[Rfam]
RNA sequence: UUUUUUAUGAUGAAACAAACAAAGCUGAUAACAAGUUGAUGACAGCUUAUAUCAUUUCACCAAGAUCUCUGAAAAA
Numbered sequence: 001u002u003u004u005u006u007a008u009g010a011u012g013a014a015a016c017a018a019a020c021a022a023a024g025c026u027g028a029u030a031a032c033a034a035g036u037u038g039a040u041g042a043c044a045g046c047u048u049a050u051a052u053c054a055u056u057u058c059a060c061c062a063a064g065a066u067c068u069c070u071g072a073a074a075a076a
Base pairs, nucleotide, nucleotide: 002076003075004074005073